[Rfam]
RNA sequence: CCCCCACUGUGUUGUAUGGCUUUUUAUUCCUAUGUGAUUCUGUCAGUCAUUUCAUAUAGGGAUUGAAGCCGUUUAAUACACUGGGGA
Numbered sequence: 001c002c003c004c005c006a007c008u009g010u011g012u013u014g015u016a017u018g019g020c021u022u023u024u025u026a027u028u029c030c031u032a033u034g035u036g037a038u039u040c041u042g043u044c045a046g047u048c049a050u051u052u053c054a055u056a057u058a059g060g061g062a063u064u065g066a067a068g069c070c071g072u073u074u075a076a077u078a079c080a081c082u083g084g085g086g087a
Stems, first nucleotide, its partner, number of pairs: 002086005008080007016072008026063012

mir-135 microRNA precursor family: an 87-nucleotide RNA from Microcaecilia unicolor.
For this family Rfam cites "Identification of tissue-specific microRNAs from mouse" (Lagos-Quintana et al., Curr Biol, 2002).
NCBI's taxonomy places the organism under Eukaryota, Amphibia, Gymnophiona, Siphonopidae, Microcaecilia.
Rfam 15.1 lists 2,125 matches to the family in 647 species.